[Rfam]
Annotation
Rfam assigns this 112-nucleotide RNA from Thermoflavimicrobium daqui to the family "SAM riboswitch aptamer (S box leader)". The organism belongs to Thermoflavimicrobium, within Bacteria. Its family is annotated with regulation of gene expression in the Gene Ontology. From the family's description: The SAM riboswitch is found upstream of a number of genes which code for proteins involved in methionine or cysteine biosynthesis in Gram-positive bacteria.
RNA sequence: CUCUUAUCGAGAGAGGUGUAGGGACAGGCCCAAUGAUACCUCGGCAACCGUCCAUGAUUGAUGGAAAAGGUGCCAAUUCCUGCGGAACAAAAAGUGUUCUGAGAGAUGAGAG
Numbered sequence: 001c002u003c004u005u006a007u008c009g010a011g012a013g014a015g016g017u018g019u020a021g022g023g024a025c026a027g028g029c030c031c032a033a034u035g036a037u038a039c040c041u042c043g044g045c046a047a048c049c050g051u052c053c054a055u056g057a058u059u060g061a062u063g064g065a066a067a068a069g070g071u072g073c074c075a076a077u078u079c080c081u082g083c084g085g086a087a088c089a090a091a092a093a094g095u096g097u098u099c100u101g102a103g104a105g106a107u108g109a110g111a112g
Stems, first nucleotide, its partner, number of pairs: 001112008013042005021031003025082004043074004048070002051065003078104001083101006